RNA sequence: AUGUUACUAGCGCUUAAUCAAUUUGAACGGGAAAACCAAUUUUGGGGUGAAUCCUGCUGUAGGCAGGUAGGGUUAAUUUCUUCGAUCCGAAUCCGUCAGCUAAUCUCGUAAGCGUUGAAGGGAAGUUUU
Numbered sequence: 001a002u003g004u005u006a007c008u009a010g011c012g013c014u015u016a017a018u019c020a021a022u023u024u025g026a027a028c029g030g031g032a033a034a035a036c037c038a039a040u041u042u043u044g045g046g047g048u049g050a051a052u053c054c055u056g057c058u059g060u061a062g063g064c065a066g067g068u069a070g071g072g073u074u075a076a077u078u079u080c081u082u083c084g085a086u087c088c089g090a091a092u093c094c095g096u097c098a099g100c101u102a103a104u105c106u107c108g109u110a111a112g113c114g115u116u117g118a119a120g121g122g123a124a125g126u127u128u129u
Stems, first nucleotide, its partner, number of pairs: 011114004018026003027109006037044002045094003053067004070088004
A member of the RNA family "c-di-AMP riboswitch aptamer (ydaO/yuaA leader)" from Clostridium luticellarii, 129 nucleotides long. The source organism's lineage runs through Bacteria, Bacillota, Clostridia, Clostridiaceae and Clostridium.